[Rfam]
RNA: Glycine riboswitch aptamer
RNA sequence: UCGACACUCUGGAAAGCGGGCGAACCGGCUCAGGCCGGAUCGCCCCACCGAAGGGGUAAGCCGGGACCAUCAUGGUCCUGUGUGAAAGCUCUCAGGUUUCCGUGACAGAGGGGGCAGG
Numbered sequence: 001u002c003g004a005c006a007c008u009c010u011g012g013a014a015a016g017c018g019g020g021c022g023a024a025c026c027g028g029c030u031c032a033g034g035c036c037g038g039a040u041c042g043c044c045c046c047a048c049c050g051a052a053g054g055g056g057u058a059a060g061c062c063g064g065g066a067c068c069a070u071c072a073u074g075g076u077c078c079u080g081u082g083u084g085a086a087a088g089c090u091c092u093c094a095g096g097u098u099u100c101c102g103u104g105a106c107a108g109a110g111g112g113g114g115c116a117g118g
Stems, first nucleotide, its partner, number of pairs: 005112001007110005018045006047097003050093002054091003060083002